[Rfam]
RNA: Actinobacteria sRNA Ms_IGR-7
Organism: Micromonospora sp. Llam0
RNA sequence: GCGAGGUGCCCUCUCGAACCGAGUGAUAGAAGCGUCAGAACUCCUAUCCUUCCAGUUCAGAGGGCACUUUCUGUAGCCGGAGUCCUGCCGGUCAAACCUUCAUCGGUGGAUCGAG
Numbered sequence: 001g002c003g004a005g006g007u008g009c010c011c012u013c014u015c016g017a018a019c020c021g022a023g024u025g026a027u028a029g030a031a032g033c034g035u036c037a038g039a040a041c042u043c044c045u046a047u048c049c050u051u052c053c054a055g056u057u058c059a060g061a062g063g064g065c066a067c068u069u070u071c072u073g074u075a076g077c078c079g080g081a082g083u084c085c086u087g088c089c090g091g092u093c094a095a096a097c098c099u100u101c102a103u104c105g106g107u108g109g110a111u112c113g114a115g
Stems, first nucleotide, its partner, number of pairs: 003070011016058002019055001021053001023051001025048003029044001031042002097113001099110004